Rfam assigns this 90-nucleotide RNA sequence from Rhinopomastus cyanomelas to the family "Retrovirus direct repeat 1 (dr1)". Taxonomically the source falls in Rhinopomastus (Eukaryota, Deuterostomia, Archelosauria, Aves). The family's consensus secondary structure is taken from published work. Its family is annotated with viral genome replication in the Gene Ontology. The family has 26 seed sequences and 106 matches in Rfam 15.1. This family represents the direct repeat 1 (dr1) element commonly found in the 3' UTR of Avian sarcoma, Rous sarcoma and Avian leukosis viruses (Alpharetroviruses and Avian type C retroviruses). dr1 is required for efficient viral replication and is thought to be involved in genomic RNA packaging although this may not be its only role.
RNA sequence: UGUAACGGGGCAAGGCUUGACUGAGAGGACAUUGCAUGGAUAGGCGCAAUGCGGGGAUUUCGGGAUGUACAAGAUUAGAGUCCUCUCGAG
Numbered sequence: 001u002g003u004a005a006c007g008g009g010g011c012a013a014g015g016c017u018u019g020a021c022u023g024a025g026a027g028g029a030c031a032u033u034g035c036a037u038g039g040a041u042a043g044g045c046g047c048a049a050u051g052c053g054g055g056g057a058u059u060u061c062g063g064g065a066u067g068u069a070c071a072a073g074a075u076u077a078g079a080g081u082c083c084u085c086u087c088g089a090g
Stems, first nucleotide, its partner, number of pairs: 001012003023087008041077003045073001051068003